Rfam assigns this 201-nucleotide RNA sequence from Polynucleobacter necessarius to the family "carA ncRNA motif".

[Rfam]
RNA sequence: GGAGGGUGCCUCCCUGUGGACCCCAUUUGACAGAGUUUUCAAGGGUUUACGAGCAGAAAUGGUAUGAUCACAGGGUUCGAAACUAAUUAAAAUACCCUAGCGCUUAAAGACACUCACCUCCCGCAAAAACAUCCUCGGGUUGGUCUUUUUUGAGGGUUUUGAGCGUCGGAUGGAGCAGGGACUGGAGAUGGUUUGUCACCC
Numbered sequence: 001g002g003a004g005g006g007u008g009c010c011u012c013c014c015u016g017u018g019g020a021c022c023c024c025a026u027u028u029g030a031c032a033g034a035g036u037u038u039u040c041a042a043g044g045g046u047u048u049a050c051g052a053g054c055a056g057a058a059a060u061g062g063u064a065u066g067a068u069c070a071c072a073g074g075g076u077u078c079g080a081a082a083c084u085a086a087u088u089a090a091a092a093u094a095c096c097c098u099a100g101c102g103c104u105u106a107a108a109g110a111c112a113c114u115c116a117c118c119u120c121c122c123g124c125a126a127a128a129a130c131a132u133c134c135u136c137g138g139g140u141u142g143g144u145c146u147u148u149u150u151u152g153a154g155g156g157u158u159u160u161g162a163g164c165g166u167c168g169g170a171u172g173g174a175g176c177a178g179g180g181a182c183u184g185g186a187g188a189u190g191g192u193u194u195g196u197c198a199c200c201c
Stems, first nucleotide, its partner, number of pairs: 016036002023029001038045002060073001062071002095180004102176004109167003113163004120156003126151004133143002
Dot-bracket structure: ...............((.....(.....).....)).((....))..............(.((......)).).....................((((...((((...(((.((((...(((...((((...((.......))....))))..)))...)))).))).....)))))))).....................

Notes:
Rfam describes the family as follows. carA ncRNA motif was reported as a Strong Riboswitch Candidate CarA ncRNA motif was located upstream of carA gene which codes for the small subunit of carbamoyl phosphate synthase, which is an enzyme that catalyses the first committed step in pyrimidine and arginine biosynthesis. It is proposed as a possible cis-regulatory element. A reference for the family is Brewer et al. (2021), "Comprehensive discovery of novel structured noncoding RNAs in 26 bacterial genomes", RNA Biol. Rfam classes the family as a cis-regulatory element. Taxonomically the source falls in Polynucleobacter necessarius (Bacteria, Pseudomonadati, Burkholderiales, Burkholderiaceae).